The family of this 203-nucleotide RNA from Phrynocephalus forsythii is "Small nucleolar RNA SNORA74". The base pairs follow the family's consensus structure, which was predicted with PFOLD. The match comes from Rfam's covariance-model search (125 bits). Lineage of the source: Eukaryota > Opisthokonta > Dipnotetrapodomorpha > Amniota > Phrynocephalus. On this family, see Ganot et al., Genes Dev 1997: "The family of box ACA small nucleolar RNAs is defined by an evolutionarily conserved secondary structure and ubiquitous sequence elements essential for RNA accumulation". The family's RNA type in Rfam is H/ACA-box small nucleolar RNA.
Nucleotides: 203
Stems, first nucleotide, its partner, number of pairs: 001060009011051002015046006021039002024036002069138009084128002087126002089122006095115003099112001100110003140198008156184003160180002163177004
Number, partner (000 for none) and nucleotide at each position: 001060u002059c003058c004057a005056g006055u007054g008053g009052u010000g011051g012050u013000c014000a015046g016045c017044u018043g019042u020041c021039u022038a023000u024036g025035u026000u027000a028000c029000u030000a031000c032000c033000a034000u035025g036024u037000c038022u039021a040000u041020g042019a043018c044017a045016g046015u047000g048000u049000u050012a051011c052009a053008c054007c055006a056005c057004u058003g059002g060001g061000a062000g063000a064000u065000a066000a067000a068000g069138g070137u071136a072135u073134u074133g075132u076131c077130u078000a079000u080000a081000u082000c083000u084128g085127u086000u087126g088125u089122g090121u091120g092119u093118c094117a095115u096114u097113g098000u099112c100110u101109c102108c103000g104000u105000u106000c107000u108102g109101g110100a111000a112099g113097c114096a115095g116000c117094u118093g119092a120091c121090a122089c123000c124000a125088a126087u127085a128084u129000g130077g131076g132075a133074c134073a135072a136071u137070a138069c139000u140198g141197u142196g143195c144194u145193u146192c147191u148000c149000u150000g151000a152000g153000a154000g155000u156184g157183u158182g159000c160180u161179g162000u163177g164176c165175a166174g167000c168000u169000a170000c171000a172000g173000c174166c175165u176164g177163u178000u179161c180160a181000g182158c183157a184156c185000u186000a187000g188000u189000c190000u191147g192146g193145a194144a195143g196142c197141a198140u199000a200000c201000a202000u203000g